RNA sequence: GAAUAAGGUUUUUGCGUAGGCGUUGUGCACAGUUAAAUAGAUAUUGUGUAUUCCCCCUAAGCAUCAAAUUUUAUU
Dot-bracket structure: ....(((.((..(((.(.((.(..(((((((((.........)))))))))..).)).).)))..)).)))....
Source information: mir-242_2 microRNA precursor family: a 75-nucleotide RNA sequence from Lottia gigantea. The base pairs follow the family's consensus structure, which was predicted with RNAalifold. It is one of the family's seed sequences.